[Rfam]
RNA: c-di-AMP riboswitch aptamer (ydaO/yuaA leader)
Organism: Clostridium kluyveri
RNA sequence: CAAUAUCAUUAGCCUAAGUUUUAUAAAAAACACGGGGAAACCAGUACUAUUUUGGGGUGAAUCGUAAUUUAUUACGUAGGUUAUGCCUUUUCCGAACCCGUCAGCUAACCCCGUCGGUAAUAAGGAGGAUAUAU
Numbered sequence: 001c002a003a004u005a006u007c008a009u010u011a012g013c014c015u016a017a018g019u020u021u022u023a024u025a026a027a028a029a030a031c032a033c034g035g036g037g038a039a040a041c042c043a044g045u046a047c048u049a050u051u052u053u054g055g056g057g058u059g060a061a062u063c064g065u066a067a068u069u070u071a072u073u074a075c076g077u078a079g080g081u082u083a084u085g086c087c088u089u090u091u092c093c094g095a096a097c098c099c100g101u102c103a104g105c106u107a108a109c110c111c112c113g114u115c116g117g118u119a120a121u122a123a124g125g126a127g128g129a130u131a132u133a134u
Stems, first nucleotide, its partner, number of pairs: 012118003018031003032114006042054002055099003063076004079093002